[Rfam]
RNA: SAM riboswitch aptamer (S box leader)
Organism: Lentibacillus sp. CBA3610
Nucleotides: 108
Stems, first nucleotide, its partner, number of pairs: 001108008013043005021032003026083004044075004049071002052067004079100001084097005
Number, partner (000 for none) and nucleotide at each position: 001108u002107u003106c004105u005104u006103a007102u008101c009000c010000a011000g012000a013043g014042a015041g016040g017039u018000g019000g020000a021032g022031g023030g024000a025000c026083a027082u028081g029080g030023c031022c032021c033000g034000u035000u036000g037000a038000u039017a040016c041015u042014u043013c044075g045074g046073c047072a048000a049071c050070a051000g052067g053066u054065u055064c056000u057000a058000u059000u060000c061000u062000g063000g064055g065054a066053a067052u068000a069000c070050u071049g072047u073046g074045c075044u076000a077000a078000u079100u080029c081028c082027a083026u084097c085096a086095a087094g088093c089000g090000u091000u092000u093088g094087c095086u096085u097084g098000g099000a100079a101008g102007a103006u104005a105004a106003g107002a108001a